Rfam assigns this 75-nucleotide sequence from Porphyromonas sp. oral taxon 279 to the family "Bacteroidetes FopS (family of paralogous sRNAs)". Gene Ontology term of the family: sRNA-mediated gene silencing. For this family Rfam cites "The global RNA-binding protein RbpB is a regulator of polysaccharide utilization in Bacteroides thetaiotaomicron" (Ruttiger et al., Nat Commun, 2025). Taxonomically the source falls in Porphyromonas sp. oral taxon 279 (Bacteria, Pseudomonadati, Bacteroidota, Bacteroidia).
RNA sequence: GUGUUUUUCAUGGUACUAGAUUUAAGGUUAACGAAGGGUGUUGGCUGUCGGGAGACAGUCAACACUCGUUUUAUA
Numbered sequence: 001g002u003g004u005u006u007u008u009c010a011u012g013g014u015a016c017u018a019g020a021u022u023u024a025a026g027g028u029u030a031a032c033g034a035a036g037g038g039u040g041u042u043g044g045c046u047g048u049c050g051g052g053a054g055a056c057a058g059u060c061a062a063c064a065c066u067c068g069u070u071u072u073a074u075a
Stems, first nucleotide, its partner, number of pairs: 043060007
It is annotated as a small RNA. Rfam's curators write: The RNA-binding protein RbpB and BTncRNA_FopS sRNA are involved in the post-transcription regulation of polysaccharide utilisation loci (PUL). FopS sRNAs function as post-transcriptional repressors by binding to the vicinity of the start codon of the first mRNA of target PUL polycistrons, typically corresponding to the cognate SusC homolog, impeding translation of the respective glycan transporter.